[Rfam]
RNA sequence: ACGAUAGAAACAUGUAUUGGUUCAUGUACUUGCUUUGGGUGUGAGAGUUUGUUAGUUCGAAUCUAACCUAUCCGA
Numbered sequence: 001a002c003g004a005u006a007g008a009a010a011c012a013u014g015u016a017u018u019g020g021u022u023c024a025u026g027u028a029c030u031u032g033c034u035u036u037g038g039g040u041g042u043g044a045g046a047g048u049u050u051g052u053u054a055g056u057u058c059g060a061a062u063c064u065a066a067c068c069u070a071u072c073c074g075a
Stems, first nucleotide, its partner, number of pairs: 003072005010027004029045005051067005